[Rfam]
RNA sequence: GAUGGCAAGUGAUGAAUUGAUUAAUAUUAUGCUUAAAAACGCAGAAUAAGAAUGUUGACAAACAAUCUCCGCUUAUUAUCUGAUGCCAAU
Number, nucleotide and partner (000 for none) at each position: 001g000002a000003u088004g087005g086006c085007a084008a000009g000010u000011g000012a000013u000014g000015a000016a000017u000018u000019g000020a000021u000022u000023a000024a000025u000026a000027u000028u000029a000030u000031g000032c000033u000034u000035a000036a000037a000038a000039a000040c000041g000042c000043a000044g000045a000046a000047u000048a000049a000050g000051a000052a000053u000054g000055u000056u000057g000058a000059c000060a000061a000062a000063c000064a000065a000066u000067c000068u000069c000070c000071g000072c000073u000074u000075a000076u000077u000078a000079u000080c000081u000082g000083a000084u007085g006086c005087c004088a003089a000090u000
Shown here is a 90-nucleotide RNA from Brassica carinata, a member of the family "Small nucleolar RNA R16". NCBI's taxonomy places the organism under Eukaryota, Spermatophyta, Gunneridae, rosids, Brassica. On this family, see Marker et al., Curr Biol 2002: "Experimental RNomics: identification of 140 candidates for small non-messenger RNAs in the plant Arabidopsis thaliana". It scores 69 bits against the family's covariance model. Its family is annotated with nucleolus and RNA processing in the Gene Ontology. It is annotated as a C/D-box small nucleolar RNA.